The family of this 100-nucleotide sequence from Dreissena polymorpha is "Small nucleolar RNA SNORD16". By type it is a C/D-box small nucleolar RNA. The source organism's lineage runs through Eukaryota, Protostomia, Neoheterodontei, Dreissenoidea and Dreissena. The literature on the family includes a 2001 paper in EMBO J by Huttenhofer et al., "RNomics: an experimental approach that identifies 201 candidates for novel, small, non-messenger RNAs in mouse". A search with the family's covariance model found it, with a score of 45 bits.

[Rfam]
RNA sequence: UGCUAUGAUGUUUGUAAUUUGCGUCAGAUGACAAGUAAGGUGACAGUUGCCUACUGUCAUAUGCCUUCUUGUCUAAAUGAUUGAAAAUCUUAUUACAACA
Numbered sequence: 001u002g003c004u005a006u007g008a009u010g011u012u013u014g015u016a017a018u019u020u021g022c023g024u025c026a027g028a029u030g031a032c033a034a035g036u037a038a039g040g041u042g043a044c045a046g047u048u049g050c051c052u053a054c055u056g057u058c059a060u061a062u063g064c065c066u067u068c069u070u071g072u073c074u075a076a077a078u079g080a081u082u083g084a085a086a087a088u089c090u091u092a093u094u095a096c097a098a099c100a
Stems, first nucleotide, its partner, number of pairs: 001100002022083001023081003031072005040064002042058005